The record is a 335-nucleotide RNA sequence from Pectinatus brassicae, which matches "Group I catalytic intron" in Rfam.
The family has 12 seed sequences and 5,602 matches in Rfam 15.1.
It scores 69 bits against the family's covariance model.
The source organism's lineage runs through Bacteria, Negativicutes, Selenomonadales, Selenomonadaceae and Pectinatus.
From the family's description: Group I catalytic introns are large self-splicing ribozymes.
Its family is annotated with Group I intron splicing in the Gene Ontology.
[Rfam]
RNA sequence: GUCAGUAUGUAUAGAAAUAUGCAUAUAGAGAUUGGCAAAAAACCAAUCCAAUACUGCUUGAAAUGCUGGAAACUCCUAAAGACAGUAUAGCCACAACGCUAAGAUGAAAUAAACUCAAACGUGACGGCGACGAAAGUAGAAAAAAUAUACUGUAUGGUGCAAGGUUAAACCCUAAACACUAAGAAAAUGGACAAUCAGCAGGAAAGCUCCGAACAGGAGAAUCCCCAACGACUAUUCCUCUUGAGGGAAGUACGGUCAAGCGACCGGAAGUGGGCAGACCUUAACGGAUAAUGCCGAAGGACAAGAUAUAGUCUGUGCUUUAUGGAAACAUAAAG
Numbered sequence: 001g002u003c004a005g006u007a008u009g010u011a012u013a014g015a016a017a018u019a020u021g022c023a024u025a026u027a028g029a030g031a032u033u034g035g036c037a038a039a040a041a042a043c044c045a046a047u048c049c050a051a052u053a054c055u056g057c058u059u060g061a062a063a064u065g066c067u068g069g070a071a072a073c074u075c076c077u078a079a080a081g082a083c084a085g086u087a088u089a090g091c092c093a094c095a096a097c098g099c100u101a102a103g104a105u106g107a108a109a110u111a112a113a114c115u116c117a118a119a120c121g122u123g124a125c126g127g128c129g130a131c132g133a134a135a136g137u138a139g140a141a142a143a144a145a146u147a148u149a150c151u152g153u154a155u156g157g158u159g160c161a162a163g164g165u166u167a168a169a170c171c172c173u174a175a176a177c178a179c180u181a182a183g184a185a186a187a188u189g190g191a192c193a194a195u196c197a198g199c200a201g202g203a204a205a206g207c208u209c210c211g212a213a214c215a216g217g218a219g220a221a222u223c224c225c226c227a228a229c230g231a232c233u234a235u236u237c238c239u240c241u242u243g244a245g246g247g248a249a250g251u252a253c254g255g256u257c258a259a260g261c262g263a264c265c266g267g268a269a270g271u272g273g274g275c276a277g278a279c280c281u282u283a284a285c286g287g288a289u290a291a292u293g294c295c296g297a298a299g300g301a302c303a304a305g306a307u308a309u310a311g312u313c314u315g316u317g318c319u320u321u322a323u324g325g326a327a328a329c330a331u332a333a334a335g
Base pairs, nucleotide, nucleotide: 005026006025007024008023009022010021011020012019013018032040054277055276056275057274059272060271064200065199066198067197068196069195074191075190076189201224202223208217209216228314230313231312232311233310234309279300280299281298282297287292320333321332322331323330324329